RNA: t44 RNA
Organism: Plesiomonas shigelloides
RNA sequence: AGAACUCAUGUGAAAUAUCACACACGUAUCGACACCGUGCUCCGGGGUGCUCUGUUUUCUCUUUAUGGAGAGAUAGAGUCGGUUGCAGGGGAUACGUGGAGGCUUAAC
Numbered sequence: 001a002g003a004a005c006u007c008a009u010g011u012g013a014a015a016u017a018u019c020a021c022a023c024a025c026g027u028a029u030c031g032a033c034a035c036c037g038u039g040c041u042c043c044g045g046g047g048u049g050c051u052c053u054g055u056u057u058u059c060u061c062u063u064u065a066u067g068g069a070g071a072g073a074u075a076g077a078g079u080c081g082g083u084u085g086c087a088g089g090g091g092a093u094a095c096g097u098g099g100a101g102g103c104u105u106a107a108c
Base pairs, nucleotide, nucleotide: 023098024097025096026095027094028093029092030091036089038087039086040085042082043081044080049079050078051077052076053075054074055073056072057071058070